The record is an 81-nucleotide RNA from Pseudobacteroides cellulosolvens, which matches "ZMP/ZTP riboswitch aptamer (pfl RNA motif)" in Rfam.
The source organism's lineage runs through Bacteria, Bacillati, Clostridia, Pseudobacteroides and Pseudobacteroides cellulosolvens.
[Rfam]
RNA sequence: UACAUAUCGUAUGACUGGCGGAAGUGGAGUUUACCACAUGGAAGUACGAUUAUUAAAAAGCCGACCGCCUGGGUGACUGAU
Number, nucleotide and partner (000 for none) at each position: 001u000002a000003c000004a000005u000006a050007u049008c048009g047010u046011a045012u044013g000014a000015c041016u040017g069018g068019c067020g066021g065022a000023a000024g037025u036026g035027g034028a000029g000030u000031u000032u000033a000034c027035c026036a025037c024038a000039u000040g016041g015042a000043a000044g012045u011046a010047c009048g008049a007050u006051u000052a000053u000054u000055a000056a000057a000058a000059a000060g074061c073062c072063g000064a000065c021066c020067g019068c018069c017070u000071g000072g062073g061074u060075g000076a000077c000078u000079g000080a000081u000